[Rfam]
RNA sequence: GAGUCAGUGAAGCCAGUGCUCGACCUGACAAAUUCAAUCCUGUGUCGGGUGGAAUGAAUAACAUGUCUUUUGCUGCGCCCAUGGGUUCGCGACCAUGCGCCCUCGGCCUAUUUUGCUGUUGCUCCUCAUGUUUCUGCCUAUGCUGCCCGC
Numbered sequence: 001g002a003g004u005c006a007g008u009g010a011a012g013c014c015a016g017u018g019c020u021c022g023a024c025c026u027g028a029c030a031a032a033u034u035c036a037a038u039c040c041u042g043u044g045u046c047g048g049g050u051g052g053a054a055u056g057a058a059u060a061a062c063a064u065g066u067c068u069u070u071u072g073c074u075g076c077g078c079c080c081a082u083g084g085g086u087u088c089g090c091g092a093c094c095a096u097g098c099g100c101c102c103u104c105g106g107c108c109u110a111u112u113u114u115g116c117u118g119u120u121g122c123u124c125c126u127c128a129u130g131u132u133u134c135u136g137c138c139u140a141u142g143c144u145g146c147c148c149g150c
Base pairs, nucleotide, nucleotide: 003029004028005027006026007025008023011020012019013018046149047148048147049146050145051144052143054141055140056139060132061131062130063129064128065127072122073121075116076115077114081111082110083109084108085107086106087105089100090099091098
RNA: Hepatitis E virus cis-reactive element